Notes:
The family of this 71-nucleotide RNA sequence from Bellilinea caldifistulae is "tRNA". NCBI's taxonomy places the organism under Bacteria, Bacillati, Chloroflexota, Anaerolineaceae, Bellilinea.
[Rfam]
RNA sequence: GGCGACGUGGCCAAGUGGUAAGGCAAGGGUCUGCAAAACCCUGAUCACGGGUUCAAAUCCCGUCGUCGCCU
Numbered sequence: 001g002g003c004g005a006c007g008u009g010g011c012c013a014a015g016u017g018g019u020a021a022g023g024c025a026a027g028g029g030u031c032u033g034c035a036a037a038a039c040c041c042u043g044a045u046c047a048c049g050g051g052u053u054c055a056a057a058u059c060c061c062g063u064c065g066u067c068g069c070c071u
Base pairs, nucleotide, nucleotide: 001070002069003068004067005066006065007064010024011023012022026042027041028040029039030038047063048062049061050060051059